About this RNA
Small nucleolar RNA Z157/R69/R10: a 97-nucleotide RNA sequence from Theobroma cacao. Its Rfam clan is "SNORD52 clan". Lineage of the source: Eukaryota > Streptophytina > eudicotyledons > Gunneridae > Theobroma. Gene Ontology terms of the family: nucleolus and RNA processing. The match comes from Rfam's covariance-model search (69 bits). The base pairs follow the family's consensus structure, which was predicted with PFOLD.
RNA sequence: AAAAGUGCAGUGAUGAAGCAUUUUUUGUGAACUAGAGUUUCUGAUUUGGGUUUUUCCCUUAAGUUGAAGACUAACCCUUGAUUGUUUGAAUACCCUU
Numbered sequence: 001a002a003a004a005g006u007g008c009a010g011u012g013a014u015g016a017a018g019c020a021u022u023u024u025u026u027g028u029g030a031a032c033u034a035g036a037g038u039u040u041c042u043g044a045u046u047u048g049g050g051u052u053u054u055u056c057c058c059u060u061a062a063g064u065u066g067a068a069g070a071c072u073a074a075c076c077c078u079u080g081a082u083u084g085u086u087u088g089a090a091u092a093c094c095c096u097u
Base pairs, nucleotide, nucleotide: 001097002096005093006092007091038069039068040067041066045062046061048059049058050057